Shown here is a 232-nucleotide RNA from Cloacibacillus porcorum, a member of the family "T-box leader". The literature on the family includes a 1994 paper in J Bacteriol by Grundy et al., "Interaction between the acceptor end of tRNA and the T box stimulates antitermination in the Bacillus subtilis tyrS gene: a new role for the discriminator base". Lineage of the source: Bacteria > Synergistota > Synergistia > Synergistaceae > Cloacibacillus.

[Rfam]
RNA sequence: GCAAACGCGAUGAUGGAGUUACGGUCAUUACAGAUAGGUUUACAGAGAGCCGGCACGCAGGUGAGAGCCGGAACCGAAGGGUAGUGAAGCGGUCUCGCUCCGGAGCGGAGUCCCCUAAGGCGAAAGCUGUUAAGGGAUUACGGCUGGCCCCGUUAUAGGCGCCAAUGAGUGGCCGCGGAUAUUUUGCGGCAAUCAGGGUGGUACCGCGAUGAUCUGUAUAUUCGUCCCUGAG
Numbered sequence: 001g002c003a004a005a006c007g008c009g010a011u012g013a014u015g016g017a018g019u020u021a022c023g024g025u026c027a028u029u030a031c032a033g034a035u036a037g038g039u040u041u042a043c044a045g046a047g048a049g050c051c052g053g054c055a056c057g058c059a060g061g062u063g064a065g066a067g068c069c070g071g072a073a074c075c076g077a078a079g080g081g082u083a084g085u086g087a088a089g090c091g092g093u094c095u096c097g098c099u100c101c102g103g104a105g106c107g108g109a110g111u112c113c114c115c116u117a118a119g120g121c122g123a124a125a126g127c128u129g130u131u132a133a134g135g136g137a138u139u140a141c142g143g144c145u146g147g148c149c150c151c152g153u154u155a156u157a158g159g160c161g162c163c164a165a166u167g168a169g170u171g172g173c174c175g176c177g178g179a180u181a182u183u184u185u186g187c188g189g190c191a192a193u194c195a196g197g198g199u200g201g202u203a204c205c206g207c208g209a210u211g212a213u214c215u216g217u218a219u220a221u222u223c224g225u226c227c228c229u230g231a232g
Stems, first nucleotide, its partner, number of pairs: 007106002015101004027085005038075001040073001050071005109139006141152003172190007195229004206225004